A member of the RNA family "Bacterial RNase P class A" from Maribacter algarum, 316 nucleotides long. NCBI's taxonomy places the organism under Bacteria, Pseudomonadati, Bacteroidota, Flavobacteriia, Maribacter. By type it is a ribozyme. About the family: Ribonuclease P (RNase P) is a ubiquitous endoribonuclease, found in archaea, bacteria and eukarya as well as chloroplasts and mitochondria.
[Rfam]
RNA sequence: UCAGCAGGUCACCUUAUCGUCGUGUGCUGAUUUAGUUUCAGUACAAGGAGGAAAGUCCGGACACCAUAGUGCAGCAUAGUGGGUAACACCCAUCCGUCGAGAGAUGCGGACAAGUGCAACAGAAAGCAAGUACAGUUCGGCUGUAGUGAAAUCAGGUAAACUCUAUGCGGUGAAACGUCAUGUAAACCGGUGUUUGAGGGCUGCACGCCCGAGCCGAAGGGUAGGCGGUUAGAGCUUUUGGGUAACCGAAAGUCUAGAUAAAUGAUAAGGAACUCAGCAAUGAGGAACAGAAUCCGGCUUAUGACCUGCUUUUUUU
Numbered sequence: 001u002c003a004g005c006a007g008g009u010c011a012c013c014u015u016a017u018c019g020u021c022g023u024g025u026g027c028u029g030a031u032u033u034a035g036u037u038u039c040a041g042u043a044c045a046a047g048g049a050g051g052a053a054a055g056u057c058c059g060g061a062c063a064c065c066a067u068a069g070u071g072c073a074g075c076a077u078a079g080u081g082g083g084u085a086a087c088a089c090c091c092a093u094c095c096g097u098c099g100a101g102a103g104a105u106g107c108g109g110a111c112a113a114g115u116g117c118a119a120c121a122g123a124a125a126g127c128a129a130g131u132a133c134a135g136u137u138c139g140g141c142u143g144u145a146g147u148g149a150a151a152u153c154a155g156g157u158a159a160a161c162u163c164u165a166u167g168c169g170g171u172g173a174a175a176c177g178u179c180a181u182g183u184a185a186a187c188c189g190g191u192g193u194u195u196g197a198g199g200g201c202u203g204c205a206c207g208c209c210c211g212a213g214c215c216g217a218a219g220g221g222u223a224g225g226c227g228g229u230u231a232g233a234g235c236u237u238u239u240g241g242g243u244a245a246c247c248g249a250a251a252g253u254c255u256a257g258a259u260a261a262a263u264g265a266u267a268a269g270g271a272a273c274u275c276a277g278c279a280a281u282g283a284g285g286a287a288c289a290g291a292a293u294c295c296g297g298c299u300u301a302u303g304a305c306c307u308g309c310u311u312u313u314u315u316u
Stems, first nucleotide, its partner, number of pairs: 003310009012270007020048002023045008053300003057297005062172004069206004074168005079093005094108001095106004109163002114161002116157002131145006176227004188216004198210004234253008

The match comes from Rfam's covariance-model search (196 bits).